Rfam assigns this 53-nucleotide RNA sequence from Hyphomonas sp. CY54-11-8 to the family "serC leader". This family is a putative regulatory RNA structure that is found upstream of the serC-serA operon in some alpha-proteobacteria. It scores 53 bits against the family's covariance model. Taxonomically the source falls in Hyphomonas (Bacteria, Pseudomonadati, Pseudomonadota, Hyphomonadales). By type it is a cis-regulatory leader.
RNA sequence: CGGCGGGCCAGCAUCCCCCAACGGAUGCCAGCCUAUCUGUAAGGAUAGGAGUA
Numbered sequence: 001c002g003g004c005g006g007g008c009c010a011g012c013a014u015c016c017c018c019c020a021a022c023g024g025a026u027g028c029c030a031g032c033c034u035a036u037c038u039g040u041a042a043g044g045a046u047a048g049g050a051g052u053a
Base pairs, nucleotide, nucleotide: 011028012027013026014025015024016023033048034047035046036045037044038043